[Rfam]
RNA sequence: CUUGAUCGACCCCAGCCACAACGGACCGCUCUCCGCACGCUCCUGGCCGUAGGUGGCCAGCAGCGCCUGCGCCUC
Numbered sequence: 001c002u003u004g005a006u007c008g009a010c011c012c013c014a015g016c017c018a019c020a021a022c023g024g025a026c027c028g029c030u031c032u033c034c035g036c037a038c039g040c041u042c043c044u045g046g047c048c049g050u051a052g053g054u055g056g057c058c059a060g061c062a063g064c065g066c067c068u069g070c071g072c073c074u075c
Stems, first nucleotide, its partner, number of pairs: 016024002031071001033069001038065002043060003047056003